[Rfam]
RNA sequence: GGUCGGUGAUAUUAAAAAGAUAUUUCCUACUCUUGAUGGGGAUUUACAAAAAUUCCAUCUGAUGAUUCCUUAUCCACCAAGAUCUCUGAGGCU
Numbered sequence: 001g002g003u004c005g006g007u008g009a010u011a012u013u014a015a016a017a018a019g020a021u022a023u024u025u026c027c028u029a030c031u032c033u034u035g036a037u038g039g040g041g042a043u044u045u046a047c048a049a050a051a052a053u054u055c056c057a058u059c060u061g062a063u064g065a066u067u068c069c070u071u072a073u074c075c076a077c078c079a080a081g082a083u084c085u086c087u088g089a090g091g092c093u
Base pairs, nucleotide, nucleotide: 001093002092003091004090

Rfam assigns this 93-nucleotide RNA sequence from Nicotiana sylvestris to the family "Small nucleolar RNA SNORD24". Rfam links the family to the GO terms nucleolus and RNA processing. The family's consensus secondary structure was predicted with PFOLD. On this family, see Kiss-Laszlo et al., Cell 1996: "Site-specific ribose methylation of preribosomal RNA: a novel function for small nucleolar RNAs".